This 88-nucleotide RNA from Chitinilyticum piscinae belongs to the Rfam family "Burkholderia RNA 7 (anti-hemB)". Rfam describes the family as follows. This RNA motif was identified by computational search in b-proteobacteria Burkholderia. It scores 67 bits against the family's covariance model. The family has 26 seed sequences and 479 matches in Rfam 15.1.

RNA sequence: CCCCCGCUUUUCCUCCCUGAGCGGGAGCUCCGAUCAGAUCGGAGCACACAUUGGGCCCCGGCUGUCCCCUUGAGCCGGGGUUUCUUUU
Numbered sequence: 001c002c003c004c005c006g007c008u009u010u011u012c013c014u015c016c017c018u019g020a021g022c023g024g025g026a027g028c029u030c031c032g033a034u035c036a037g038a039u040c041g042g043a044g045c046a047c048a049c050a051u052u053g054g055g056c057c058c059c060g061g062c063u064g065u066c067c068c069c070u071u072g073a074g075c076c077g078g079g080g081u082u083u084c085u086u087u088u
Base pairs, nucleotide, nucleotide: 003025004024005023006022007021008020027045028044029043030042031041032040033039056080057079058078059077060076061075062074063073